[Rfam]
RNA sequence: CUGUGUGGAUGGUGUUCAAUACCAAGGACAGACAUGCUUGCCUGUAUGUGGAUGGUAUUCAGUACCAAGGACAGGCAUGUUUGCCA
Numbered sequence: 001c002u003g004u005g006u007g008g009a010u011g012g013u014g015u016u017c018a019a020u021a022c023c024a025a026g027g028a029c030a031g032a033c034a035u036g037c038u039u040g041c042c043u044g045u046a047u048g049u050g051g052a053u054g055g056u057a058u059u060c061a062g063u064a065c066c067a068a069g070g071a072c073a074g075g076c077a078u079g080u081u082u083g084c085c086a
Base pairs, nucleotide, nucleotide: 001074002073003072004071010067011066012065013064014063015062016061018059019058020057021056022055023054024053026047028045029044030043031042033040034039
RNA: mir-2060 microRNA precursor family
Organism: Branchiostoma belcheri